[Rfam]
Nucleotides: 108
Base pairs, nucleotide, nucleotide: 003090004089005088006087007086021043022042023041024040046078047077048076049075055067056066057065094103095102096101
Number, partner (000 for none) and nucleotide at each position: 001000a002000a003090g004089u005088g006087a007086c008000c009000a010000a011000a012000u013000c014000u015000c016000a017000a018000g019000u020000g021043c022042c023041g024040g025000a026000a027000g028000a029000c030000g031000g032000g033000g034000u035000a036000a037000c038000a039000c040024c041023c042022g043021g044000c045000c046078g047077c048076g049075u050000c051000c052000g053000a054000c055067c056066c057065g058000c059000g060000u061000a062000c063000g064000a065057c066056g067055g068000a069000g070000u071000c072000g073000g074000a075049a076048c077047g078046c079000c080000c081000c082000c083000c084000g085000a086007g087006u088005c089004a090003c091000g092000c093000c094103g095102g096101g097000c098000c099000u100000g101096c102095c103094c104000u105000a106000u107000a108000c